[Rfam]
RNA sequence: GCCGAGCCCGGUAGCAUUGGCUUGUAACCCGAGCGGGGGCAUUAUAAGGUGGUGGGAUGUUAUGAGAAGUCGGAUUGGGAUGGGUUCGGUAGUUGCAGGACUUGGCUUUGCCCGUUCCAAGUCAAGUAGUUGAUCCAUGUGGCUCGGGAGAAGGCCCGAGCCAUGUUCGAUCCUAAAGCCGGAGGACACCGCGUCAGGCUGGCUUCACAGAGCAGCGAUUACCUCCCGCUCUUGACGGUGGAAGGAUUACAGGGCCGGUGUACGCCGAACUCGCCUUGCCCAUCUGGCUUAGCACUGAUCAGACCACCAUUUUU
Numbered sequence: 001g002c003c004g005a006g007c008c009c010g011g012u013a014g015c016a017u018u019g020g021c022u023u024g025u026a027a028c029c030c031g032a033g034c035g036g037g038g039g040c041a042u043u044a045u046a047a048g049g050u051g052g053u054g055g056g057a058u059g060u061u062a063u064g065a066g067a068a069g070u071c072g073g074a075u076u077g078g079g080a081u082g083g084g085u086u087c088g089g090u091a092g093u094u095g096c097a098g099g100a101c102u103u104g105g106c107u108u109u110g111c112c113c114g115u116u117c118c119a120a121g122u123c124a125a126g127u128a129g130u131u132g133a134u135c136c137a138u139g140u141g142g143c144u145c146g147g148g149a150g151a152a153g154g155c156c157c158g159a160g161c162c163a164u165g166u167u168c169g170a171u172c173c174u175a176a177a178g179c180c181g182g183a184g185g186a187c188a189c190c191g192c193g194u195c196a197g198g199c200u201g202g203c204u205u206c207a208c209a210g211a212g213c214a215g216c217g218a219u220u221a222c223c224u225c226c227c228g229c230u231c232u233u234g235a236c237g238g239u240g241g242a243a244g245g246a247u248u249a250c251a252g253g254g255c256c257g258g259u260g261u262a263c264g265c266c267g268a269a270c271u272c273g274c275c276u277u278g279c280c281c282a283u284c285u286g287g288c289u290u291a292g293c294a295c296u297g298a299u300c301a302g303a304c305c306a307c308c309a310u311u312u313u314u
Stems, first nucleotide, its partner, number of pairs: 001040003004023005010017001028037003046313010058301002060298003063294002067290002070287006077281003082272008094262002097259001103257008112245002115243005121236006128230003132172004137167001138165011173178001181226005192217003199210003
Description: Plant signal recognition particle RNA: a 314-nucleotide RNA sequence from Ensete ventricosum. Rfam links the family to the GO terms SRP-dependent cotranslational protein targeting to membrane, signal sequence recognition and signal recognition particle, endoplasmic reticulum targeting. The organism belongs to Ensete, within Eukaryota. Rfam 15.1 lists 4,988 matches to the family in 266 species.